[Rfam]
RNA: Lysine riboswitch aptamer
Organism: Bacillus solimangrovi
RNA sequence: CGAUGAGGUAGAGGUGCAAAAAACAAGAGUAUAAUCCACGAGGAUGACAACGAAGACUGGAUUGGAAAGGGUUUUUUGCCGAAGCAGAGAAAAAAGGUCGCUUAUUCUCUGUUGGGGCUGUCCUGAAUAAGGGCGGAACUGUCGCUGUAAAGUACGUUUAACAGCGGAGUGCUCCUAUCGUG
Dot-bracket structure: ......((.((....(((((((((.......(((((((...................)))))))......)))))))))...(((((((((.((.......)).)))))))))((..(((((((.....)))))))..)).(((((((............)))))))....)).))......